[Rfam]
RNA sequence: GGAAAUGCGAUGAAGAGGAAUAGUACAUUCGGACUUGACUGCAGAGAACUGUCGGGUGGUGCGAGACAGUGGAGAGGAUGUUUGGAACUCGCCUCCGAGCGGCUGUCCGAAAUCUUUCGCCAUGCGGGAGAGAGUAGACACAGACGGGGCCCUGCCGUUAUAGAGGGAAGGAUAUAAGAAGUAAUUCCGUAUCCGUUGAGUGUGUGAGUUUUUCGCAAAAUAGAGUGGUACCGCGUGGGACAGUUGUCCUUCGUCUCUGGG
Numbered sequence: 001g002g003a004a005a006u007g008c009g010a011u012g013a014a015g016a017g018g019a020a021u022a023g024u025a026c027a028u029u030c031g032g033a034c035u036u037g038a039c040u041g042c043a044g045a046g047a048a049c050u051g052u053c054g055g056g057u058g059g060u061g062c063g064a065g066a067c068a069g070u071g072g073a074g075a076g077g078a079u080g081u082u083u084g085g086a087a088c089u090c091g092c093c094u095c096c097g098a099g100c101g102g103c104u105g106u107c108c109g110a111a112a113u114c115u116u117u118c119g120c121c122a123u124g125c126g127g128g129a130g131a132g133a134g135u136a137g138a139c140a141c142a143g144a145c146g147g148g149g150c151c152c153u154g155c156c157g158u159u160a161u162a163g164a165g166g167g168a169a170g171g172a173u174a175u176a177a178g179a180a181g182u183a184a185u186u187c188c189g190u191a192u193c194c195g196u197u198g199a200g201u202g203u204g205u206g207a208g209u210u211u212u213u214c215g216c217a218a219a220a221u222a223g224a225g226u227g228g229u230a231c232c233g234c235g236u237g238g239g240a241c242a243g244u245u246g247u248c249c250u251u252c253g254u255c256u257c258u259g260g261g
Stems, first nucleotide, its partner, number of pairs: 007100002015095004026084002030080002039071001048070006103143004145157003203217006222258004233254003237250004
RNA: T-box leader